Guanidine-I riboswitch aptamer: a 106-nucleotide RNA sequence from Niallia taxi. Rfam 15.1 lists 1,509 matches to the family in 1,281 species. Pairs were carried over by alignment from the consensus structure.
RNA sequence: CAAAAAGCUGUCUAGGGUUCCGUUUAAAGAGUUUUCUUUAAAGUCAGGUCCGAGAGAGAGCGUGCAGCACUUGCUGUAUACACGGAAGGACAAAAGCCUGGGAGAU
Numbered sequence: 001c002a003a004a005a006a007g008c009u010g011u012c013u014a015g016g017g018u019u020c021c022g023u024u025u026a027a028a029g030a031g032u033u034u035u036c037u038u039u040a041a042a043g044u045c046a047g048g049u050c051c052g053a054g055a056g057a058g059a060g061c062g063u064g065c066a067g068c069a070c071u072u073g074c075u076g077u078a079u080a081c082a083c084g085g086a087a088g089g090a091c092a093a094a095a096g097c098c099u100g101g102g103a104g105a106u
Stems, first nucleotide, its partner, number of pairs: 007061003011057002015051002020048002022045001023042006062079007081101001083104001087099003
Lineage of the source: Bacteria > Bacillati > Bacillota > Bacilli > Niallia.